[Rfam]
RNA sequence: GACCAUAUGAUGGGUUAACUCGGAUUCCCCUUCAAGACAUAAUGGGUGAUGCAAAAUCGAGUUUCUGAUGGU
Numbered sequence: 001g002a003c004c005a006u007a008u009g010a011u012g013g014g015u016u017a018a019c020u021c022g023g024a025u026u027c028c029c030c031u032u033c034a035a036g037a038c039a040u041a042a043u044g045g046g047u048g049a050u051g052c053a054a055a056a057u058c059g060a061g062u063u064u065c066u067g068a069u070g071g072u
Stems, first nucleotide, its partner, number of pairs: 002072004
A member of the RNA family "Small nucleolar RNA snoR60" from Carya illinoinensis, 72 nucleotides long. A reference for the family is Barneche et al. (2000), "Fibrillarin genes encode both a conserved nucleolar protein and a novel small nucleolar RNA involved in ribosomal RNA methylation in Arabidopsis thaliana", J Biol Chem. The family has 10 seed sequences and 1,133 matches in Rfam 15.1. The source organism's lineage runs through Eukaryota, Embryophyta, Spermatophyta, Mesangiospermae and Carya. By type it is a C/D-box small nucleolar RNA. The family is grouped with related families in Rfam's "SNORD101 clan". The family's consensus secondary structure was predicted with PFOLD. Gene Ontology terms of the family: nucleolus and RNA processing.